[Rfam]
RNA: Bacterial RNase P class B
RNA sequence: AUUUUGAAUCAACUGCUGUAUUUGAAAGAUAAUAUAGAGGAAACUCCACGCUUGCACACUCUGAGAUGGGUGUAGUGAUUGUGCUAGAGAAAAAAAUAACUCUAGAUACCAUAUUUAUGGUAAUGACAUAAACAAGUCUAAGGGAUGAACUAUCCUAUGAUUAGUUUUAUAAAGUGCCACAGGGACGAUUAGCUAGAAAUAGUGAAAUGGAACGGGUAAACUCCACAAGCAAGAAACUCAAAUUUUGGUAGAGGAAUUAAAAACUGAGAAAUGAAUUAGUUUUUAAAUCACAUUAGUGAUAGAUAGAUAGUUGAUGCAUUUAUUGUUACAGAACGUGGGUUAUUAUA
Numbered sequence: 001a002u003u004u005u006g007a008a009u010c011a012a013c014u015g016c017u018g019u020a021u022u023u024g025a026a027a028g029a030u031a032a033u034a035u036a037g038a039g040g041a042a043a044c045u046c047c048a049c050g051c052u053u054g055c056a057c058a059c060u061c062u063g064a065g066a067u068g069g070g071u072g073u074a075g076u077g078a079u080u081g082u083g084c085u086a087g088a089g090a091a092a093a094a095a096a097u098a099a100c101u102c103u104a105g106a107u108a109c110c111a112u113a114u115u116u117a118u119g120g121u122a123a124u125g126a127c128a129u130a131a132a133c134a135a136g137u138c139u140a141a142g143g144g145a146u147g148a149a150c151u152a153u154c155c156u157a158u159g160a161u162u163a164g165u166u167u168u169a170u171a172a173a174g175u176g177c178c179a180c181a182g183g184g185a186c187g188a189u190u191a192g193c194u195a196g197a198a199a200u201a202g203u204g205a206a207a208u209g210g211a212a213c214g215g216g217u218a219a220a221c222u223c224c225a226c227a228a229g230c231a232a233g234a235a236a237c238u239c240a241a242a243u244u245u246u247g248g249u250a251g252a253g254g255a256a257u258u259a260a261a262a263a264c265u266g267a268g269a270a271a272u273g274a275a276u277u278a279g280u281u282u283u284u285a286a287a288u289c290a291c292a293u294u295a296g297u298g299a300u301a302g303a304u305a306g307a308u309a310g311u312u313g314a315u316g317c318a319u320u321u322a323u324u325g326u327u328a329c330a331g332a333a334c335g336u337g338g339g340u341u342a343u344u345a346u347a
Base pairs, nucleotide, nucleotide: 004347007343008315009314010313011312012311013310014309016037017036018035019034020033021032042341043340044339046338047337048336049335050334051233052232053231054230055229056073057072058071059070060069061068079228080227081226082225083224084105085104086103087102088101089100106124107122108121109120110119111118112117125223126222128170129169130168131167135162136161137160138159142156143155144154145153146152147151174221175220176217177216178215189206190205192203193202194201195200237253238252239251257286258285259284260283261282262281263280287300288299289298290297291296317325318324